[Rfam]
RNA sequence: CUUGAUCGAACCAAGCAGCAGGGGCUGGCCUUCGGGCCGCUCCUGGCCGUACGUGGCGAGUAGUGCCUGCGCCUC
Numbered sequence: 001c002u003u004g005a006u007c008g009a010a011c012c013a014a015g016c017a018g019c020a021g022g023g024g025c026u027g028g029c030c031u032u033c034g035g036g037c038c039g040c041u042c043c044u045g046g047c048c049g050u051a052c053g054u055g056g057c058g059a060g061u062a063g064u065g066c067c068u069g070c071g072c073c074u075c
Base pairs, nucleotide, nucleotide: 014026015025016024031071033069038065039064043060044059047056048055049054

The family of this 75-nucleotide sequence from Streptomyces zagrosensis is "ASpks TB sRNA". A search with the family's covariance model found it, with a score of 71 bits. Taxonomically the source falls in Streptomyces (Bacteria, Bacillati, Actinomycetes, Kitasatosporales).